[Rfam]
RNA sequence: GCGGGGCUGCCCGGUGCGUCAGGCACGCACACUCCCGGGGGCUAUACGUCUGUGAAAGGGAGCUGUCCCUGUCGGGAUCCUGGUCUCGGCACACGGCGCCCACGUUGUUGCCGCGGCCCAUGUGGAGGUCGCACCGCCAACGGCCAGGGUGGCUCCGCA
Numbered sequence: 001g002c003g004g005g006g007c008u009g010c011c012c013g014g015u016g017c018g019u020c021a022g023g024c025a026c027g028c029a030c031a032c033u034c035c036c037g038g039g040g041g042c043u044a045u046a047c048g049u050c051u052g053u054g055a056a057a058g059g060g061a062g063c064u065g066u067c068c069c070u071g072u073c074g075g076g077a078u079c080c081u082g083g084u085c086u087c088g089g090c091a092c093a094c095g096g097c098g099c100c101c102a103c104g105u106u107g108u109u110g111c112c113g114c115g116g117c118c119c120a121u122g123u124g125g126a127g128g129u130c131g132c133a134c135c136g137c138c139a140a141c142g143g144c145c146a147g148g149g150u151g152g153c154u155c156c157g158c159a
Base pairs, nucleotide, nucleotide: 002157003156004155005154006153007152008151009150010149011148013145014144015143017142018141019140032127033126034125035124037119038118039117042116058101059100060099062097063096064095065094066093071090072089073088074087075086076085077084